Rfam assigns this 85-nucleotide RNA sequence from Aquarana catesbeiana to the family "Small nucleolar RNA SNORD70". snoRNA HBII-234 belongs to the C/D family of snoRNAs. It is the human orthologue of the mouse MBII-234 and is predicted to guide 2'O-ribose methylation of the small 18S rRNA on position A512. It is hosted, together with HBII-95, by the core C/D box snoRNA protein encoding gene NOP5/NOP58. It is annotated as a C/D-box small nucleolar RNA.
[Rfam]
RNA sequence: UAAUGUUGCCAAUGAUGGAUUUUUGUUGAAUGAAUUGAACAGUGAUUAAAUACAGUUUCGUCACUACCACUGAGGCAACAAAUUA
Dot-bracket structure: ((((((((((...............................................................)))))))..)))
Numbered sequence: 001u002a003a004u005g006u007u008g009c010c011a012a013u014g015a016u017g018g019a020u021u022u023u024u025g026u027u028g029a030a031u032g033a034a035u036u037g038a039a040c041a042g043u044g045a046u047u048a049a050a051u052a053c054a055g056u057u058u059c060g061u062c063a064c065u066a067c068c069a070c071u072g073a074g075g076c077a078a079c080a081a082a083u084u085a
Stems, first nucleotide, its partner, number of pairs: 001085003004080007